[Rfam]
RNA: mir-16 microRNA precursor family
RNA sequence: UCCGCCAGCAGCAGCACAGAAAUAAGGAUGUCAAUACCAUACCACGCCACCCUUAUUUCUGUGCUGCUGCUGGAGGA
Numbered sequence: 001u002c003c004g005c006c007a008g009c010a011g012c013a014g015c016a017c018a019g020a021a022a023u024a025a026g027g028a029u030g031u032c033a034a035u036a037c038c039a040u041a042c043c044a045c046g047c048c049a050c051c052c053u054u055a056u057u058u059c060u061g062u063g064c065u066g067c068u069g070c071u072g073g074a075g076g077a
Base pairs, nucleotide, nucleotide: 001077002076005073006072010068011067012066013065014064015063016062017061019058021057022056023055024054025053026052027051